The record is a 69-nucleotide sequence from Aneurinibacillus soli, which matches "Bacillaceae-1 RNA" in Rfam.
NCBI's taxonomy places the organism under Bacteria, Bacilli, Caryophanales, Paenibacillaceae, Aneurinibacillus.

RNA sequence: UUUCAAGGAAGUUCUGCUAAAGUCGCGACGUCCUGUCGCAACGCAGAACCUAGCACAUCCUUAUGUGUC
Numbered sequence: 001u002u003u004c005a006a007g008g009a010a011g012u013u014c015u016g017c018u019a020a021a022g023u024c025g026c027g028a029c030g031u032c033c034u035g036u037c038g039c040a041a042c043g044c045a046g047a048a049c050c051u052a053g054c055a056c057a058u059c060c061u062u063a064u065g066u067g068u069c
Stems, first nucleotide, its partner, number of pairs: 011049007025039005053068006
Dot-bracket structure: ..........(((((((.......(((((.....)))))...)))))))...((((((....)))))).
The family has 95 seed sequences and 5,721 matches in Rfam 15.1.